Shown here is a 104-nucleotide sequence, a member of the family "DUF3577 RNA".
The base pairs follow the family's consensus structure, which is taken from published work.
RNA sequence: CGAUCGGACAGCGUAGGAAACUACGUCAAACUCGCCUGUAAUCCCGGCAUCACCACGCAAGUGGUGUGGCGACUUUUUCAACUGGCUGCUGCGGCAGCGAUUAU
Numbered sequence: 001c002g003a004u005c006g007g008a009c010a011g012c013g014u015a016g017g018a019a020a021c022u023a024c025g026u027c028a029a030a031c032u033c034g035c036c037u038g039u040a041a042u043c044c045c046g047g048c049a050u051c052a053c054c055a056c057g058c059a060a061g062u063g064g065u066g067u068g069g070c071g072a073c074u075u076u077u078u079c080a081a082c083u084g085g086c087u088g089c090u091g092c093g094g095c096a097g098c099g100a101u102u103a104u
Stems, first nucleotide, its partner, number of pairs: 011026006032072005051066006083099001085098005